[Rfam]
RNA sequence: UGGCGUUGAAUCGGUGGGUUGUUUCGGGGUGCAGUCCAUCGUGGAGCCAGCCCGAGGGUUAUGUGUUACCUCAAACCGAAUAGGCAUUUGCCGAAAGAAAACACUUUAU
Numbered sequence: 001u002g003g004c005g006u007u008g009a010a011u012c013g014g015u016g017g018g019u020u021g022u023u024u025c026g027g028g029g030u031g032c033a034g035u036c037c038a039u040c041g042u043g044g045a046g047c048c049a050g051c052c053c054g055a056g057g058g059u060u061a062u063g064u065g066u067u068a069c070c071u072c073a074a075a076c077c078g079a080a081u082a083g084g085c086a087u088u089u090g091c092c093g094a095a096a097g098a099a100a101a102c103a104c105u106u107u108a109u
Stems, first nucleotide, its partner, number of pairs: 001049004012041011024079004063104003083092003